A member of the RNA family "Small nucleolar RNA U19" from Brassica napus, 159 nucleotides long. A search with the family's covariance model found it, with a score of 53 bits. The family has 3 seed sequences and 421 matches in Rfam 15.1. It is annotated as an H/ACA-box small nucleolar RNA.
[Rfam]
RNA sequence: AUCUGGCUUAGUUAGGAGGCAAACAUAAAUUAUGAUCAUUCAGUACUUUUCUGUAUUGUUUUUGGUCGUUUGAGGCUUUCUUUUUUGUUUCUUUUGAGGAGGAGCAAUUGAAUUAUCUUCAAUUGCAAGCUUCUUCUUACCAAAAAGCUUCAGACAUUA
Numbered sequence: 001a002u003c004u005g006g007c008u009u010a011g012u013u014a015g016g017a018g019g020c021a022a023a024c025a026u027a028a029a030u031u032a033u034g035a036u037c038a039u040u041c042a043g044u045a046c047u048u049u050u051c052u053g054u055a056u057u058g059u060u061u062u063u064g065g066u067c068g069u070u071u072g073a074g075g076c077u078u079u080c081u082u083u084u085u086u087g088u089u090u091c092u093u094u095u096g097a098g099g100a101g102g103a104g105c106a107a108u109u110g111a112a113u114u115a116u117c118u119u120c121a122a123u124u125g126c127a128a129g130c131u132u133c134u135u136c137u138u139a140c141c142a143a144a145a146a147g148c149u150u151c152a153g154a155c156a157u158u159a
Base pairs, nucleotide, nucleotide: 004021005020007018008017009016034067035066036065037064038063043059044058045057047055070153071152072151073150074149075148076147093144094143095142096141098136099135100134101133102132103131104130105129
Rfam links the family to the GO terms nucleolus and RNA processing.